[Rfam]
RNA: M-box riboswitch aptamer (ykoK leader)
RNA sequence: UCAACACUCCGAUAAGUGAGGCUACUAUAGGGAUACGGACUGCUGCCACGAAAUGAUGGAGACAUCAUAAGACGGUCUGAACAGUCAAUGUCGAAGCCAAGGCAUUGAAUAAUGCAGUUACAUCGCCCUAUUGAGCCAAAGCUCAAACGGUUGCAAUAUGUG
Number, nucleotide and partner (000 for none) at each position: 001u000002c000003a000004a000005c000006a157007c000008u155009c000010c153011g148012a000013u100014a000015a143016g142017u141018g000019a000020g137021g136022c135023u000024a000025c133026u000027a131028u130029a129030g128031g127032g126033a000034u000035a000036c000037g000038g000039a118040c117041u116042g115043c114044u000045g077046c075047c074048a000049c000050g000051a000052a000053a000054u000055g066056a065057u064058g063059g000060a000061g000062a000063c058064a057065u056066c055067a000068u000069a000070a000071g000072a000073c000074g047075g046076u000077c045078u000079g000080a000081a000082c000083a000084g000085u108086c107087a106088a000089u000090g103091u102092c101093g000094a000095a000096g000097c000098c000099a000100a013101g092102g091103c090104a000105u000106u087107g086108a085109a000110u000111a000112a000113u000114g043115c042116a041117g040118u039119u000120a000121c000122a000123u000124c000125g000126c032127c031128c030129u029130a028131u027132u000133g025134a000135g022136c021137c020138a000139a000140a000141g017142c016143u015144c000145a000146a000147a000148c011149g000150g000151u000152u000153g010154c000155a008156a000157u006158a000159u000160g000161u000162g000